[Rfam]
RNA sequence: GGGAUGUGAUGAGUGGUCGACACUCGCACUGAACAUGCGAGAUGGGUGUCCAGCCUAAGCCUGGUUACGACAAUAUGGGCACUCUCAUUUUCACCAAUCUGAUCCC
Numbered sequence: 001g002g003g004a005u006g007u008g009a010u011g012a013g014u015g016g017u018c019g020a021c022a023c024u025c026g027c028a029c030u031g032a033a034c035a036u037g038c039g040a041g042a043u044g045g046g047u048g049u050c051c052a053g054c055c056u057a058a059g060c061c062u063g064g065u066u067a068c069g070a071c072a073a074u075a076u077g078g079g080c081a082c083u084c085u086c087a088u089u090u091u092c093a094c095c096a097a098u099c100u101g102a103u104c105c106c
Base pairs, nucleotide, nucleotide: 001106002105003104004103014096015095016094017093023041024040025039026038027037044084045083046082047081048080049079050078062077063076064074065073